[Rfam]
RNA: pan motif
RNA sequence: AGGGCAGUAUCUUUCGCGAAAGAACUGCACCGUGCAUCAAGGGAAACAACAAAAAAUGCGAUCUGCCUUGAUCCUUAGAAGGACUGGGACAGAGGG
Numbered sequence: 001a002g003g004g005c006a007g008u009a010u011c012u013u014u015c016g017c018g019a020a021a022g023a024a025c026u027g028c029a030c031c032g033u034g035c036a037u038c039a040a041g042g043g044a045a046a047c048a049a050c051a052a053a054a055a056a057u058g059c060g061a062u063c064u065g066c067c068u069u070g071a072u073c074c075u076u077a078g079a080a081g082g083a084c085u086g087g088g089a090c091a092g093a094g095g096g
Stems, first nucleotide, its partner, number of pairs: 002031002004028005010023004063092003066088003070084001072083003